[Rfam]
The record is a 130-nucleotide sequence from Triplophysa tibetana, which matches "Small nucleolar RNA SNORA3/SNORA45 family" in Rfam. A search with the family's covariance model found it, with a score of 92 bits. Gene Ontology terms of the family: RNA processing and nucleolus. On this family, see Huttenhofer et al., EMBO J 2001: "RNomics: an experimental approach that identifies 201 candidates for novel, small, non-messenger RNAs in mouse". Pairs were carried over by alignment from the consensus structure, which was predicted with RNAalifold. By type it is an H/ACA-box small nucleolar RNA.
RNA sequence: AGCGAGACUAGAGUCACGUCUUGAUAUUGUGAUUGUCCUGAUGUGCUUAAGUUCUCGCAGAAUAAACUCUCUGCUUAUUCAUUGGCUGCUGCUUCUCAUUGCCCAGCCAAUCACCAGCUCAGAAACAAAC
Numbered sequence: 001a002g003c004g005a006g007a008c009u010a011g012a013g014u015c016a017c018g019u020c021u022u023g024a025u026a027u028u029g030u031g032a033u034u035g036u037c038c039u040g041a042u043g044u045g046c047u048u049a050a051g052u053u054c055u056c057g058c059a060g061a062a063u064a065a066a067c068u069c070u071c072u073g074c075u076u077a078u079u080c081a082u083u084g085g086c087u088g089c090u091g092c093u094u095c096u097c098a099u100u101g102c103c104c105a106g107c108c109a110a111u112c113a114c115c116a117g118c119u120c121a122g123a124a125a126c127a128a129a130c
Stems, first nucleotide, its partner, number of pairs: 002058005007052003012047002015045006023037004069122002073118003081111005087105002091102002